U11 spliceosomal RNA: a 136-nucleotide sequence from Molossus molossus.
Rfam classes the family as a spliceosomal small nuclear RNA.
RNA sequence: CGAAAGGGCUUCUGUCGUGAGUGCACAAGUGUGUAGGGCAGCUUGACUGCUCUGUGAGCAGAGUCGAAUCAAGAGAUUUCAGAAGCGUCAUUUUUUGGUUUCUGGGCAGCUGGUGAUUGUUGGUCCAGGCUCCCGC
Numbered sequence: 001c002g003a004a005a006g007g008g009c010u011u012c013u014g015u016c017g018u019g020a021g022u023g024c025a026c027a028a029g030u031g032u033g034u035a036g037g038g039c040a041g042c043u044u045g046a047c048u049g050c051u052c053u054g055u056g057a058g059c060a061g062a063g064u065c066g067a068a069u070c071a072a073g074a075g076a077u078u079u080c081a082g083a084a085g086c087g088u089c090a091u092u093u094u095u096u097g098g099u100u101u102c103u104g105g106g107c108a109g110c111u112g113g114u115g116a117u118u119g120u121u122g123g124u125c126c127a128g129g130c131u132c133c134c135g136c
Stems, first nucleotide, its partner, number of pairs: 008086005013027003016023002030058001032056010061079005104134003109130003113126001115125004
A search with the family's covariance model found it, with a score of 59 bits. The family is grouped with related families in Rfam's "U1 clan". The source organism's lineage runs through Eukaryota, Sarcopterygii, Eutheria, Yangochiroptera and Molossus.